[Rfam]
RNA sequence: GGCGUAAAGCGAGUGUAGGCGGUUGUUAUAGUCAGGUGUGAAAGCCUUGAGCUCAACUCAAGAAAUGCACUUGAUACUGAACAGCUAGAGUACCGGAGAGGAUAGUGGAAUUCCCAGUGUAGUGGUGAAAUACGUAGAGAUUGGGAAGAACACCAGUGGCGAAGGCGGCUAUCUGGACGGUUACUGACGCUAAGACUCGAAAGCGUGGGGAGCAAACAGGAUUAGAUACCCUGGUAGUCCACGCCGUAAACGAUGGGUGCUAGACGUUGGCGAGCUUGCUCGUCAGUGUCGCAGCUAACGCGUUAAGCACCCCGCCUGGGGAGUACGGCCGCAAGGUUGAAACUCAAAGGAAU
Numbered sequence: 001g002g003c004g005u006a007a008a009g010c011g012a013g014u015g016u017a018g019g020c021g022g023u024u025g026u027u028a029u030a031g032u033c034a035g036g037u038g039u040g041a042a043a044g045c046c047u048u049g050a051g052c053u054c055a056a057c058u059c060a061a062g063a064a065a066u067g068c069a070c071u072u073g074a075u076a077c078u079g080a081a082c083a084g085c086u087a088g089a090g091u092a093c094c095g096g097a098g099a100g101g102a103u104a105g106u107g108g109a110a111u112u113c114c115c116a117g118u119g120u121a122g123u124g125g126u127g128a129a130a131u132a133c134g135u136a137g138a139g140a141u142u143g144g145g146a147a148g149a150a151c152a153c154c155a156g157u158g159g160c161g162a163a164g165g166c167g168g169c170u171a172u173c174u175g176g177a178c179g180g181u182u183a184c185u186g187a188c189g190c191u192a193a194g195a196c197u198c199g200a201a202a203g204c205g206u207g208g209g210g211a212g213c214a215a216a217c218a219g220g221a222u223u224a225g226a227u228a229c230c231c232u233g234g235u236a237g238u239c240c241a242c243g244c245c246g247u248a249a250a251c252g253a254u255g256g257g258u259g260c261u262a263g264a265c266g267u268u269g270g271c272g273a274g275c276u277u278g279c280u281c282g283u284c285a286g287u288g289u290c291g292c293a294g295c296u297a298a299c300g301c302g303u304u305a306a307g308c309a310c311c312c313c314g315c316c317u318g319g320g321g322a323g324u325a326c327g328g329c330c331g332c333a334a335g336g337u338u339g340a341a342a343c344u345c346a347a348a349g350g351a352a353u
Stems, first nucleotide, its partner, number of pairs: 001316003009313001011198004016192001018191003022085006030078002032074009046062006089185003092181004100174007107151001111147008122133003159166002203244006212238002217233004255312006263290012294301002318345003327338004
Dot-bracket structure: (((.....(.((((.(.(((.((((((..(((((((((((.....((((((.....))))))...)))))))))..)).))))))...(((((((....((((((((...((((((((...(((......)))......))))))))...).......((....)).)))))))...)))).)))...))))..))))....((((((...((...((((.........))))...))))))))..........((((((..((((((((((((....))))))))))))...((....)).....)))))))))).(((......((((....))))....)))........
RNA: Bacterial small subunit ribosomal RNA, nucleotides 512 to 864